[Rfam]
RNA sequence: GCGGGUUCAGCCCGCGGGAUGUUCCCGGAAGGGAGAACCACAAA
Numbered sequence: 001g002c003g004g005g006u007u008c009a010g011c012c013c014g015c016g017g018g019a020u021g022u023u024c025c026c027g028g029a030a031g032g033g034a035g036a037a038c039c040a041c042a043a044a
Stems, first nucleotide, its partner, number of pairs: 001015005016039002023034004
Shown here is a 44-nucleotide RNA from Thermococcus zilligii, a member of the family "eL15-Euryarchaeota ribosomal protein leader". The source organism's lineage runs through Archaea, Thermococci, Thermococcaceae, Thermococcus and Thermococcus zilligii. The family's RNA type in Rfam is cis-regulatory leader.